[Rfam]
Rfam assigns this 70-nucleotide sequence from Phtheirospermum japonicum to the family "Small nucleolar RNA Z105".
A search with the family's covariance model found it, with a score of 55 bits.
Rfam 15.1 lists 621 matches to the family in 204 species.
Lineage of the source: Eukaryota > Gunneridae > Lamiales > Orobanchaceae > Phtheirospermum.
Pairs were carried over by alignment from the consensus structure, which was predicted with CMfinder.
For this family Rfam cites "The high diversity of snoRNAs in plants: identification and comparative study of 120 snoRNA genes from Oryza sativa" (Chen et al., Nucleic Acids Res, 2003).
Rfam classes the family as a C/D-box small nucleolar RNA.
RNA sequence: UGGGCAUAAUGAGGAAAACAAAUUGAUCAGAAACUUUAAUGAUUGAAUAACAACCUCCUACUCAUUCUGA
Numbered sequence: 001u002g003g004g005c006a007u008a009a010u011g012a013g014g015a016a017a018a019c020a021a022a023u024u025g026a027u028c029a030g031a032a033a034c035u036u037u038a039a040u041g042a043u044u045g046a047a048u049a050a051c052a053a054c055c056u057c058c059u060a061c062u063c064a065u066u067c068u069g070a
Stems, first nucleotide, its partner, number of pairs: 006065002009062001027046002